[Rfam]
RNA: Flavobacterium-1 RNA
RNA sequence: AAGCUCAAGGGCGUCCAAAUCUUGCCGAUGGCAUUUCCCUGUACGUUAGCGAUGACCGCAAGGUAGCAACCUGGAGUUUGGCCGGCUGUGAGUACGUGCACGGAAAGCAGCUGGUU
Numbered sequence: 001a002a003g004c005u006c007a008a009g010g011g012c013g014u015c016c017a018a019a020u021c022u023u024g025c026c027g028a029u030g031g032c033a034u035u036u037c038c039c040u041g042u043a044c045g046u047u048a049g050c051g052a053u054g055a056c057c058g059c060a061a062g063g064u065a066g067c068a069a070c071c072u073g074g075a076g077u078u079u080g081g082c083c084g085g086c087u088g089u090g091a092g093u094a095c096g097u098g099c100a101c102g103g104a105a106a107g108c109a110g111c112u113g114g115u116u
Base pairs, nucleotide, nucleotide: 001079002078003077004076005075006074008072009071010070011046012045013044014043016041017040023033024032025031026030049067050066056063057062081115082114083113084112085111086110087109088108089107095102096101